[Rfam]
RNA sequence: UCUGUGUAGCGCGGGUUGUAGUUCACAAACACAAAGCCACGGGCUUGGUCGAUUGUGUGAAAGAGUGGGUUCCAAUCGAACAUCGCCAACAUAAAGCUUGGCAACGUAUUGGCUACGAACAUCUUGCCUGAGGCGAUCAUGUUGGCACGGCUG
Numbered sequence: 001u002c003u004g005u006g007u008a009g010c011g012c013g014g015g016u017u018g019u020a021g022u023u024c025a026c027a028a029a030c031a032c033a034a035a036g037c038c039a040c041g042g043g044c045u046u047g048g049u050c051g052a053u054u055g056u057g058u059g060a061a062a063g064a065g066u067g068g069g070u071u072c073c074a075a076u077c078g079a080a081c082a083u084c085g086c087c088a089a090c091a092u093a094a095a096g097c098u099u100g101g102c103a104a105c106g107u108a109u110u111g112g113c114u115a116c117g118a119a120c121a122u123c124u125u126g127c128c129u130g131a132g133g134c135g136a137u138c139a140u141g142u143u144g145g146c147a148c149g150g151c152u153g
Stems, first nucleotide, its partner, number of pairs: 003033005013023002036056002039053001040051003064152003067148001069081004085146008097133002099130003102126003106122002109118003